[Rfam]
RNA sequence: AGAUAUAGGAAAGCGCCGGGCCAUGCGGCAGACAGGCCGUAAGGGUGACGAGGUGAGGGUUUAUCGAAAGAUUCGGCGGGUGACCCUCUGGCUGUGGACCGCACAGUCAUCAGCAGCGGAGCAAAACCCGGCAGUAAUGCCGGAACAGAGAACGCUGCCAACAAGUUG
Numbered sequence: 001a002g003a004u005a006u007a008g009g010a011a012a013g014c015g016c017c018g019g020g021c022c023a024u025g026c027g028g029c030a031g032a033c034a035g036g037c038c039g040u041a042a043g044g045g046u047g048a049c050g051a052g053g054u055g056a057g058g059g060u061u062u063a064u065c066g067a068a069a070g071a072u073u074c075g076g077c078g079g080g081u082g083a084c085c086c087u088c089u090g091g092c093u094g095u096g097g098a099c100c101g102c103a104c105a106g107u108c109a110u111c112a113g114c115a116g117c118g119g120a121g122c123a124a125a126a127c128c129c130g131g132c133a134g135u136a137a138u139g140c141c142g143g144a145a146c147a148g149a150g151a152a153c154g155c156u157g158c159c160a161a162c163a164a165g166u167u168g
Stems, first nucleotide, its partner, number of pairs: 020046003024041004029036001055088005064076004089109006113158006128143006
Dot-bracket structure: ...................(((.((((.(......).))))..)))........(((((....((((.....)))).......)))))((((((.........))))))...((((((.........((((((....)))))).........))))))..........
RNA: glmS glucosamine-6-phosphate activated ribozyme aptamer
Organism: Gemmiger sp. An120